[Rfam]
RNA sequence: AGUGCCUGCAUAUGAUGAAAACUAUGUUGGUAGGGACAUCUGAUUAAAUCAUGAUGUUUACCAACGUCUCUGAGCAGGUCUU
Numbered sequence: 001a002g003u004g005c006c007u008g009c010a011u012a013u014g015a016u017g018a019a020a021a022c023u024a025u026g027u028u029g030g031u032a033g034g035g036a037c038a039u040c041u042g043a044u045u046a047a048a049u050c051a052u053g054a055u056g057u058u059u060a061c062c063a064a065c066g067u068c069u070c071u072g073a074g075c076a077g078g079u080c081u082u
Stems, first nucleotide, its partner, number of pairs: 001082002004079002

Overview:
A member of the RNA family "Small nucleolar RNA SNORD74" from Microcaecilia unicolor, 82 nucleotides long. A search with the family's covariance model found it, with a score of 65 bits. The family has 22 seed sequences and 929 matches in Rfam 15.1. The family is grouped with related families in Rfam's "SNORD74 clan".